[Rfam]
RNA sequence: CCGGAUGCCAUAACGGGUCCGGUUGGACAGAGGGCGUCGGCUCUUGGUUCCCGGCGCCUCUCACGCCCAGAUUGCUCAACAAGGAGGAUUUGGAAAUGAGAA
Numbered sequence: 001c002c003g004g005a006u007g008c009c010a011u012a013a014c015g016g017g018u019c020c021g022g023u024u025g026g027a028c029a030g031a032g033g034g035c036g037u038c039g040g041c042u043c044u045u046g047g048u049u050c051c052c053g054g055c056g057c058c059u060c061u062c063a064c065g066c067c068c069a070g071a072u073u074g075c076u077c078a079a080c081a082a083g084g085a086g087g088a089u090u091u092g093g094a095a096a097u098g099a100g101a102a
Stems, first nucleotide, its partner, number of pairs: 001022006008016002031059001033058008060100004067093007075086003

Record summary: Rfam assigns this 102-nucleotide RNA sequence from Novosphingobium pentaromativorans to the family "Repression of heat shock gene expression (ROSE) element". It is annotated as an RNA thermoregulator. On this family, see Balsiger et al., J Bacteriol 2004: "Replicon-specific regulation of small heat shock genes in Agrobacterium tumefaciens". The match comes from Rfam's covariance-model search (50 bits). Rfam links the family to the GO terms response to temperature stimulus and regulation of translation. This family represents a 5' UTR cis-regulatory element found in heat shock mRNAs and is known as the ROSE (repression of heat shock gene expression) element. The ROSE element is a negative regulator of heat shock gene expression.